[Rfam]
mir-36 microRNA precursor family: a 107-nucleotide sequence from Caenorhabditis remanei.

RNA sequence: UUAUUCCCUGACGAGGGGAACCGUGCUGGUUUCGACCUCGGUAAUAGGUCCAUAUAUGAGAAGAACCUAUCACCGGGUGGAAACUGGUACGGGUCCCCGAGUCAGUC
Number, nucleotide and partner (000 for none) at each position: 001u000002u000003a000004u000005u000006c000007c000008c000009u000010g000011a000012c000013g000014a000015g000016g097017g096018g095019a094020a000021c092022c091023g000024u089025g088026c087027u086028g085029g084030u083031u082032u081033c080034g000035a078036c077037c076038u000039c075040g000041g073042u072043a000044a070045u069046a068047g067048g066049u000050c000051c000052a000053u000054a000055u000056a000057u000058g000059a000060g000061a000062a000063g000064a000065a000066c048067c047068u046069a045070u044071c000072a042073c041074c000075g039076g037077g036078u035079g000080g033081a032082a031083a030084c029085u028086g027087g026088u025089a024090c000091g022092g021093g000094u019095c018096c017097c016098c000099g000100a000101g000102u000103c000104a000105g000106u000107c000
Record summary: The organism belongs to Caenorhabditis, within Eukaryota.